[Rfam]
RNA sequence: AGGCAAUGAAGUAAGAAAUCGUUUCUCGAUGCUGAUUAUAACGAUAUCAACGUUAUAUACAUUUUUGAUGACCUAUUUGUGCGUGUCUGAGCCUC
Numbered sequence: 001a002g003g004c005a006a007u008g009a010a011g012u013a014a015g016a017a018a019u020c021g022u023u024u025c026u027c028g029a030u031g032c033u034g035a036u037u038a039u040a041a042c043g044a045u046a047u048c049a050a051c052g053u054u055a056u057a058u059a060c061a062u063u064u065u066u067g068a069u070g071a072c073c074u075a076u077u078u079g080u081g082c083g084u085g086u087c088u089g090a091g092c093c094u095c
Stems, first nucleotide, its partner, number of pairs: 001094004
Dot-bracket structure: ((((......................................................................................)))).